[Rfam]
RNA sequence: CCGCUGGUUGCACCGCUCCCGGGUAGCUGCCAGGAGGCCCGGUAGCAGGCUGGCGGCUUCGUCUGGAAACGGGCGAGGUCGAAGCCCAGCGCCAAAGGCCCUUUCAUGGGGGAGCGACGGUGCGGUCCGUAGCAUGA
Dot-bracket structure: ..................(((((..............)))))......(((((((((((...(.(....).)...))))))....)))))........((((.....))))..(((...........))).......